Actinobacteria sRNA Ms_IGR-5: a 212-nucleotide RNA from Occultella aeris. The match comes from Rfam's covariance-model search (89 bits). Taxonomically the source falls in Occultella (Bacteria, Actinomycetota, Actinomycetes, Micrococcales).
RNA sequence: ACACGCGAAAGGAGGUGGUCCGAGACGUGAAGAAUCUUGGGACUCGUGAGGUGGCUGUCCGCUAGCCGCUCGUCAAAGUGAACGGACGGCAUGCCGUCUCCACGGCGCGCGAGCGCUAGCGAGACCACGGCAGCCACCGGAGCCCUGCGGGGCCGCACCUUCGUCCAGUGCGGCACCCCGACACCACGUCGGGAACCGCGGGGCUUCUUCAU
Numbered sequence: 001a002c003a004c005g006c007g008a009a010a011g012g013a014g015g016u017g018g019u020c021c022g023a024g025a026c027g028u029g030a031a032g033a034a035u036c037u038u039g040g041g042a043c044u045c046g047u048g049a050g051g052u053g054g055c056u057g058u059c060c061g062c063u064a065g066c067c068g069c070u071c072g073u074c075a076a077a078g079u080g081a082a083c084g085g086a087c088g089g090c091a092u093g094c095c096g097u098c099u100c101c102a103c104g105g106c107g108c109g110c111g112a113g114c115g116c117u118a119g120c121g122a123g124a125c126c127a128c129g130g131c132a133g134c135c136a137c138c139g140g141a142g143c144c145c146u147g148c149g150g151g152g153c154c155g156c157a158c159c160u161u162c163g164u165c166c167a168g169u170g171c172g173g174c175a176c177c178c179c180g181a182c183a184c185c186a187c188g189u190c191g192g193g194a195a196c197c198g199c200g201g202g203g204c205u206u207c208u209u210c211a212u
Stems, first nucleotide, its partner, number of pairs: 014059006060121007068114006139207012153173006